The record is a 114-nucleotide sequence from Dermatophagoides pteronyssinus, which matches "Potassium channel RNA editing signal" in Rfam. The family's RNA type in Rfam is cis-regulatory element.
RNA sequence: AUGAAAAUAGGAGAUAUGGCACCGAAAACUUAUGCCGGAAUGUUUGUCGGUGCAUUAUGUGCAUUGGCCGGUGUAUUAACUAUAGCAUUACCUGUGCCUGUUAUUGUUUCAAAU
Numbered sequence: 001a002u003g004a005a006a007a008u009a010g011g012a013g014a015u016a017u018g019g020c021a022c023c024g025a026a027a028a029c030u031u032a033u034g035c036c037g038g039a040a041u042g043u044u045u046g047u048c049g050g051u052g053c054a055u056u057a058u059g060u061g062c063a064u065u066g067g068c069c070g071g072u073g074u075a076u077u078a079a080c081u082a083u084a085g086c087a088u089u090a091c092c093u094g095u096g097c098c099u100g101u102u103a104u105u106g107u108u109u110c111a112a113a114u
Stems, first nucleotide, its partner, number of pairs: 001114002006108003010105002013102004018097001021095002037077002040074001050062002
Dot-bracket structure: ((...(((.((.((((.(..((..............((.(.........((.........))...........).))................)).).)))).)))))....))
Rfam describes the family as follows. This family represents a group of sequences related to the human potassium channel Kv1.1 hairpin element which directs the efficient modification of an adenosine to inosine by an adenosine deaminase acting on RNA (ADAR). The ADAR modification causes an isoleucine/valine recoding event which lies in the ion-conducting pore of the potassium channel. It is thought that this editing event targets the process of fast inactivation and allows a more rapid recovery from inactivation at negative potentials. Pairs were carried over by alignment from the consensus structure, which is taken from published work.